[Rfam]
RNA: msiK RNA
Organism: Streptomyces sp. ISL-10
RNA sequence: GGACCACUCCCUCUACAACGGAUCGUCCGGCACGUUCCUGCCGGUGAAGGGAGCCAUUC
Numbered sequence: 001g002g003a004c005c006a007c008u009c010c011c012u013c014u015a016c017a018a019c020g021g022a023u024c025g026u027c028c029g030g031c032a033c034g035u036u037c038c039u040g041c042c043g044g045u046g047a048a049g050g051g052a053g054c055c056a057u058u059c
Base pairs, nucleotide, nucleotide: 009051010050011049012048014046015045027044028043029042030041031040032039